[Rfam]
RNA: ATPC RNA motif
Organism: Synechococcus sp. CC9605
RNA sequence: AUCGCCUGAGAACGGCGAUCUGCUAAACACAUCCGCGCGCAGGUCCGGCAUUGCACCCGGGCCCGUUCCUUCGGGAAUGUCCCUGCGCG
Numbered sequence: 001a002u003c004g005c006c007u008g009a010g011a012a013c014g015g016c017g018a019u020c021u022g023c024u025a026a027a028c029a030c031a032u033c034c035g036c037g038c039g040c041a042g043g044u045c046c047g048g049c050a051u052u053g054c055a056c057c058c059g060g061g062c063c064c065g066u067u068c069c070u071u072c073g074g075g076a077a078u079g080u081c082c083c084u085g086c087g088c089g
Stems, first nucleotide, its partner, number of pairs: 002018005036089005042063007064079006